[Rfam]
RNA sequence: ACAGUGCCAUGGCCGUUUGAGCUAAGGGACUGAAUAAAAACGAAGGCGCAGGUGACUGCGCCUUUUUU
Numbered sequence: 001a002c003a004g005u006g007c008c009a010u011g012g013c014c015g016u017u018u019g020a021g022c023u024a025a026g027g028g029a030c031u032g033a034a035u036a037a038a039a040a041c042g043a044a045g046g047c048g049c050a051g052g053u054g055a056c057u058g059c060g061c062c063u064u065u066u067u068u
Stems, first nucleotide, its partner, number of pairs: 002019003006013002042065010

Rfam assigns this 68-nucleotide RNA sequence from [Enterobacter] lignolyticus to the family "Salmonella enterica sRNA STnc40". NCBI's taxonomy places the organism under Bacteria, Pseudomonadati, Enterobacterales, Pluralibacter, [Enterobacter] lignolyticus. The match comes from Rfam's covariance-model search (63 bits). Pairs were carried over by alignment from the consensus structure, which was predicted with LocARNA. The family's RNA type in Rfam is small RNA.